[Rfam]
RNA sequence: GCGCGUCGUGUCAGGUACUAGGUGACUCUGAGUGGAAUGGUCUCAGAGACGCCUCGUGCCUCAGCACGGCGGCGC
Numbered sequence: 001g002c003g004c005g006u007c008g009u010g011u012c013a014g015g016u017a018c019u020a021g022g023u024g025a026c027u028c029u030g031a032g033u034g035g036a037a038u039g040g041u042c043u044c045a046g047a048g049a050c051g052c053c054u055c056g057u058g059c060c061u062c063a064g065c066a067c068g069g070c071g072g073c074g075c
Stems, first nucleotide, its partner, number of pairs: 001075004006069003013061006021053004026048007